[Rfam]
A member of the RNA family "Streptomyces-metH RNA" from Streptomyces filamentosus, 121 nucleotides long. The family's consensus secondary structure is taken from published work. The source organism's lineage runs through Bacteria, Bacillati, Actinomycetota, Streptomycetaceae and Streptomyces. By type it is a small RNA.
RNA sequence: CCGUCCGGCCCGUGGGACGCCAUGUCCACCCCGGCCGAAGCGCGGUUAGGCUGACUCCGUGCACCCUCCGCCGAGGGAGCAAAGCCGACAGCCGUCGCAUCCCAGGGAGAACUCAUCCAUG
Numbered sequence: 001c002c003g004u005c006c007g008g009c010c011c012g013u014g015g016g017a018c019g020c021c022a023u024g025u026c027c028a029c030c031c032c033g034g035c036c037g038a039a040g041c042g043c044g045g046u047u048a049g050g051c052u053g054a055c056u057c058c059g060u061g062c063a064c065c066c067u068c069c070g071c072c073g074a075g076g077g078a079g080c081a082a083a084g085c086c087g088a089c090a091g092c093c094g095u096c097g098c099a100u101c102c103c104a105g106g107g108a109g110a111a112c113u114c115a116u117c118c119a120u121g
Stems, first nucleotide, its partner, number of pairs: 060081003065076004084098002087096003